The family of this 136-nucleotide sequence from Dactylosporangium siamense is "c-di-AMP riboswitch aptamer (ydaO/yuaA leader)".

RNA sequence: GCCGCCUAAUUGCCGGCUCGACACCGGCGAAUCGGGGACCCAACCGUAACUGGGGUGAAUCCGCGGGCAACCGCGGUAGGGAUCGUUCCGUCCCGAACCCGUCAGCUAACCCGGUCGGCGGCCGACGGAAGGAACA
Number, nucleotide and partner (000 for none) at each position: 001g000002c000003c120004g119005c118006c117007u000008a000009a000010u030011u029012g028013c027014c026015g025016g024017c000018u000019c000020g000021a000022c000023a000024c016025c015026g014027g013028c012029g011030a010031a115032u114033c113034g112035g111036g110037g000038a000039c000040c000041c052042a051043a000044c000045c000046g000047u000048a000049a000050c000051u042052g041053g100054g099055g098056u000057g000058a000059a000060u000061c076062c075063g074064c073065g000066g000067g000068c000069a000070a000071c000072c000073g064074c063075g062076g061077u000078a000079g094080g093081g092082a091083u000084c000085g000086u000087u000088c000089c000090g000091u082092c081093c080094c079095g000096a000097a000098c055099c054100c053101g000102u000103c000104a000105g000106c000107u000108a000109a000110c036111c035112c034113g033114g032115u031116c000117g006118g005119c004120g003121g000122c000123c000124g000125a000126c000127g000128g000129a000130a000131g000132g000133a000134a000135c000136a000